Description:
Rfam assigns this 338-nucleotide sequence from Ramlibacter monticola to the family "Bacterial RNase P class A".

[Rfam]
RNA sequence: GAAGCCCGCCAGGCCGCCGCUGGUGCAAUCGCCGAAAGGCCGCACUGGAGGAACGUCCGGACUGCACAGGGCAGCGUAGCAGGUAACACCUGCCCACCGCGAGGUGAGGAUCAGAGCAACAGAGACGAGUCCUUUGUCUUCGGCGCAAGCCGGGGAUGGAGGGGUGAAACGGGCAAUCUCUACGCGCAGCAAUACCAAAUAGGCCAGCGGCGACGUGGUCCCGCGGAGCUGGCGGGUAGGUAGCACCGAGCCGGCGGGGUGACCCCCGGCCCAGAUGAAUGGCGGUCACGCCUGGGCGACCAGGCGCACAAGAUCCGGCGUAUCGGCGGGCUUCACAC
Dot-bracket structure: ((((((((((((((((((.(((((((...............)))))))....[[[.[[[[[((((...[[...((((((((((.....)))))(((((....)))).)((...((((.............((((..((((((((....)))))))).))..)).........))..)))))))))))))...((((......((((((.....((((.]].))))..)))))).....)))).......(((((.(((....))))))))..........)))))))..........................]]]]]]]].).))))))))))....
Numbered sequence: 001g002a003a004g005c006c007c008g009c010c011a012g013g014c015c016g017c018c019g020c021u022g023g024u025g026c027a028a029u030c031g032c033c034g035a036a037a038g039g040c041c042g043c044a045c046u047g048g049a050g051g052a053a054c055g056u057c058c059g060g061a062c063u064g065c066a067c068a069g070g071g072c073a074g075c076g077u078a079g080c081a082g083g084u085a086a087c088a089c090c091u092g093c094c095c096a097c098c099g100c101g102a103g104g105u106g107a108g109g110a111u112c113a114g115a116g117c118a119a120c121a122g123a124g125a126c127g128a129g130u131c132c133u134u135u136g137u138c139u140u141c142g143g144c145g146c147a148a149g150c151c152g153g154g155g156a157u158g159g160a161g162g163g164g165u166g167a168a169a170c171g172g173g174c175a176a177u178c179u180c181u182a183c184g185c186g187c188a189g190c191a192a193u194a195c196c197a198a199a200u201a202g203g204c205c206a207g208c209g210g211c212g213a214c215g216u217g218g219u220c221c222c223g224c225g226g227a228g229c230u231g232g233c234g235g236g237u238a239g240g241u242a243g244c245a246c247c248g249a250g251c252c253g254g255c256g257g258g259g260u261g262a263c264c265c266c267c268g269g270c271c272c273a274g275a276u277g278a279a280u281g282g283c284g285g286u287c288a289c290g291c292c293u294g295g296g297c298g299a300c301c302a303g304g305c306g307c308a309c310a311a312g313a314u315c316c317g318g319c320g321u322a323u324c325g326g327c328g329g330g331c332u333u334c335a336c337a338c
Stems, first nucleotide, its partner, number of pairs: 001334010011323001012287007020048007053321003057318005062189004069220002074185005079093005094108001095106004109180002114178002116174002131163002133159002137156008193242004203233006214225004250270005256265003

Background: A search with the family's covariance model found it, with a score of 194 bits.